RNA sequence: UGACGUUCUCAGGGCGGGGUGAAAUUCCCCACCGGCGGUAAUUGCGCUUAUGUGCAUCAGCCCGCGAGCGCCCGUGGCCUAGGCUGCGGGGUCAGCAGACCCGGUGUGACUCCGGGGCCGACGGUAUAGUCCGGAUGGAAGAGAACGAUG
Numbered sequence: 001u002g003a004c005g006u007u008c009u010c011a012g013g014g015c016g017g018g019g020u021g022a023a024a025u026u027c028c029c030c031a032c033c034g035g036c037g038g039u040a041a042u043u044g045c046g047c048u049u050a051u052g053u054g055c056a057u058c059a060g061c062c063c064g065c066g067a068g069c070g071c072c073c074g075u076g077g078c079c080u081a082g083g084c085u086g087c088g089g090g091g092u093c094a095g096c097a098g099a100c101c102c103g104g105u106g107u108g109a110c111u112c113c114g115g116g117g118c119c120g121a122c123g124g125u126a127u128a129g130u131c132c133g134g135a136u137g138g139a140a141g142a143g144a145a146c147g148a149u150g
Stems, first nucleotide, its partner, number of pairs: 004147007017029003031130002033120002035065004060118002068096002100116005122133003

The record is a 150-nucleotide RNA sequence from Altererythrobacter sp. B11, which matches "FMN riboswitch aptamer (RFN element)" in Rfam. Rfam links the family to the GO term FMN binding.